[Rfam]
RNA: Plastid-ycf2 5UTR RNA
Organism: Dioscorea zingiberensis
RNA sequence: GUCCAUCCAACGGGAAUUGAACCUAUGAAUUUGCCAAUUAUGAGUUGGGAGCUUUAACCAUUUAGCCAUGGAUGC
Number, nucleotide and partner (000 for none) at each position: 001g000002u000003c000004c074005a073006u072007c071008c070009a000010a026011c000012g024013g023014g022015a000016a000017u000018u000019g000020a000021a000022c014023c013024u012025a000026u010027g000028a000029a000030u000031u000032u000033g000034c000035c000036a000037a000038u000039u000040a069041u068042g067043a000044g066045u065046u064047g063048g062049g061050a000051g059052c000053u000054u000055u000056a000057a000058c000059c051060a000061u049062u048063u047064a046065g045066c044067c042068a041069u040070g008071g007072a006073u005074g004075c000